Glycine riboswitch aptamer: a 111-nucleotide sequence from a Microbacteriaceae bacterium. For this family Rfam cites "In Vivo Behavior of the Tandem Glycine Riboswitch in Bacillus subtilis" (Babina et al., MBio, 2017). The match comes from Rfam's covariance-model search (36 bits). Gene Ontology term of the family: glycine biosynthetic process. The organism belongs to Microbacteriaceae, within Bacteria.
RNA sequence: GCCACUCUGAAAAGUGGAGCGCGUAUUUCGCGCUCCCGCCCACGGUGAAAGUCGUUGACCCCCACAAGGAGGCCGCGAUGAAGCUCUCAGGCCCAUGACAGAGGGGGAGUU
Numbered sequence: 001g002c003c004a005c006u007c008u009g010a011a012a013a014g015u016g017g018a019g020c021g022c023g024u025a026u027u028u029c030g031c032g033c034u035c036c037c038g039c040c041c042a043c044g045g046u047g048a049a050a051g052u053c054g055u056u057g058a059c060c061c062c063c064a065c066a067a068g069g070a071g072g073c074c075g076c077g078a079u080g081a082a083g084c085u086c087u088c089a090g091g092c093c094c095a096u097g098a099c100a101g102a103g104g105g106g107g108a109g110u111u
Stems, first nucleotide, its partner, number of pairs: 002106002005103005016036008038092003042087001045086001047084001051079005